Nucleotides: 058
Stems, first nucleotide, its partner, number of pairs: 001056006
Number, partner (000 for none) and nucleotide at each position: 001056g002055c003054u004053c005052c006051c007000c008000u009000u010000a011000c012000a013000g014000c015000a016000a017000u018000u019000c020000u021000a022000a023000u024000u025000c026000a027000u028000u029000c030000u031000a032000c033000u034000g035000a036000u037000u038000a039000a040000g041000a042000a043000a044000a045000a046000c047000c048000c049000u050000u051006g052005g053004g054003a055002g056001c057000u058000g
A member of the RNA family "Class I RNA from Dictyostelium" from Polysphondylium violaceum, 58 nucleotides long. The family's RNA type in Rfam is non-coding RNA gene. The match comes from Rfam's covariance-model search (53 bits). About the family: Dictyostelium Class I RNA was first reported for Aspegren et al. 2004 in Dictyostelium discoideum.